[Rfam]
Description
A member of the RNA family "c-di-AMP riboswitch aptamer (ydaO/yuaA leader)" from Nonomuraea maritima, 144 nucleotides long.
RNA sequence: GAGUCCGGUCAGCCUAAUCCACGCAGCGUUGCGUGGAGCCGGGGACCCAACCUCCCCCAGGGGCGAAUCGGCGACUCCUCCGCCGUAGGGCUACUUCCAGGCCCGAGCCCGUCAGCUAACCCGGUCGGCCGCAUGGAAGGACAA
Numbered sequence: 001g002a003g004u005c006c007g008g009u010c011a012g013c014c015u016a017a018u019c020c021a022c023g024c025a026g027c028g029u030u031g032c033g034u035g036g037a038g039c040c041g042g043g044g045a046c047c048c049a050a051c052c053u054c055c056c057c058c059a060g061g062g063g064c065g066a067a068u069c070g071g072c073g074a075c076u077c078c079u080c081c082g083c084c085g086u087a088g089g090g091c092u093a094c095u096u097c098c099a100g101g102c103c104c105g106a107g108c109c110c111g112u113c114a115g116c117u118a119a120c121c122c123g124g125u126c127g128g129c130c131g132c133a134u135g136g137a138a139g140g141a142c143a144a
Base pairs, nucleotide, nucleotide: 012129013128014127018037019036020035021034022033023032024031025030038125039124040123041122042121043120048060061110062109063108069085070084071083072082088104089103090102091101